RNA sequence: CCGCAACACGGACGCAGGGAUCCUCGGGGCAAGUAGUUCGGUCGCCGGGUGUGAUGGGGAAAGGGGCCCCGGAGCAUCCGUUCCGAGGGGAGCGAAUGGCGAGACCGGCCGUGGUGUCA
Numbered sequence: 001c002c003g004c005a006a007c008a009c010g011g012a013c014g015c016a017g018g019g020a021u022c023c024u025c026g027g028g029g030c031a032a033g034u035a036g037u038u039c040g041g042u043c044g045c046c047g048g049g050u051g052u053g054a055u056g057g058g059g060a061a062a063g064g065g066g067c068c069c070c071g072g073a074g075c076a077u078c079c080g081u082u083c084c085g086a087g088g089g090g091a092g093c094g095a096a097u098g099g100c101g102a103g104a105c106c107g108g109c110c111g112u113g114g115u116g117u118c119a
Stems, first nucleotide, its partner, number of pairs: 003117003007113005013094003022088008040106002042102005